[Rfam]
RNA sequence: CCUUUUAAUUGGAUUUAGAGUCUGAAAAAAGAAGCUCAUAUAUUUGGUGUUGUCUAUCAGCUUCAUCUCUUGUAACCCACGAGUCUGGAGUUAAAUAUCAGCACAACAUUU
Number, nucleotide and partner (000 for none) at each position: 001c000002c000003u000004u000005u000006u000007a000008a000009u000010u000011g000012g000013a000014u000015u000016u000017a000018g000019a000020g000021u000022c000023u000024g000025a000026a000027a000028a000029a000030a000031g000032a000033a000034g000035c000036u000037c000038a000039u000040a000041u000042a000043u000044u000045u000046g000047g104048u103049g102050u101051u100052g099053u000054c000055u000056a000057u000058c000059a092060g091061c090062u089063u088064c087065a000066u000067c083068u082069c081070u000071u000072g000073u000074a000075a000076c000077c000078c000079a000080c000081g069082a068083g067084u000085c000086u000087g064088g063089a062090g061091u060092u059093a000094a000095a000096u000097a000098u000099c052100a051101g050102c049103a048104c047105a000106a000107c000108a000109u000110u000111u000
The family of this 111-nucleotide RNA from Medicago truncatula is "Small nucleolar RNA snoR97". The source organism's lineage runs through Eukaryota, Streptophyta, Papilionoideae, Trifolieae and Medicago. Rfam classes the family as an H/ACA-box small nucleolar RNA. The match comes from Rfam's covariance-model search (79 bits).